[Rfam]
RNA sequence: GGGUUUGUGAUGAGUUAUGAUAACUGAGCAUGAUGAAAUGAAGCUCAGCAUGAGUACUCUGAAGUAU
Numbered sequence: 001g002g003g004u005u006u007g008u009g010a011u012g013a014g015u016u017a018u019g020a021u022a023a024c025u026g027a028g029c030a031u032g033a034u035g036a037a038a039u040g041a042a043g044c045u046c047a048g049c050a051u052g053a054g055u056a057c058u059c060u061g062a063a064g065u066a067u
Stems, first nucleotide, its partner, number of pairs: 001067001003065003012059003021052001025047005
The family of this 67-nucleotide sequence from Gulo gulo is "Small Nucleolar RNA SNORD64". Lineage of the source: Eukaryota > Gnathostomata > Sarcopterygii > Dipnotetrapodomorpha > Gulo. The literature on the family includes a 2001 paper in Hum Mol Genet by Runte et al., "The IC-SNURF-SNRPN transcript serves as a host for multiple small nucleolar RNA species and as an antisense RNA for UBE3A". Rfam describes the family as follows. The human snoRNA HBII-13 belongs to the C/D family of snoRNAs. It is expressed mainly in the brain, but is also in the lungs, the kidneys and muscle. The base pairs follow the family's consensus structure, which was predicted with RNAalifold. Its Rfam clan is "SNORD74 clan".